RNA sequence: GGUCCGAGCCACGUUGACGAUAGUCAAAAAAGACAAUGACCGUCAAUGCUAUGAUUGGACCUAUACAAAUUUCAUGUUAAACAUCUUGAUAGGAAUCUGUACACUGAUUUGCCAUUUAUUUACAGAGCCGUUUUGUGCGAUUACAUUU
Numbered sequence: 001g002g003u004c005c006g007a008g009c010c011a012c013g014u015u016g017a018c019g020a021u022a023g024u025c026a027a028a029a030a031a032g033a034c035a036a037u038g039a040c041c042g043u044c045a046a047u048g049c050u051a052u053g054a055u056u057g058g059a060c061c062u063a064u065a066c067a068a069a070u071u072u073c074a075u076g077u078u079a080a081a082c083a084u085c086u087u088g089a090u091a092g093g094a095a096u097c098u099g100u101a102c103a104c105u106g107a108u109u110u111g112c113c114a115u116u117u118a119u120u121u122a123c124a125g126a127g128c129c130g131u132u133u134u135g136u137g138c139g140a141u142u143a144c145a146u147u148u
Base pairs, nucleotide, nucleotide: 002060003059004058005057006056007055008052012048013047014046015045016044017043019041021039023034024033025032082137083136092129093128097125098124099123101121103119105118

Annotation
Shown here is a 148-nucleotide sequence from Papaver somniferum, a member of the family "Small nucleolar RNA snoR2/U65". The base pairs follow the family's consensus structure, which was predicted with WAR. The literature on the family includes a 1998 paper in J Cell Sci by Shaw et al., "Localization and processing from a polycistronic precursor of novel snoRNAs in maize". Rfam links the family to the GO terms nucleolus and RNA processing. NCBI's taxonomy places the organism under Eukaryota, Viridiplantae, Euphyllophyta, Papaveraceae, Papaver. The family's RNA type in Rfam is H/ACA-box small nucleolar RNA.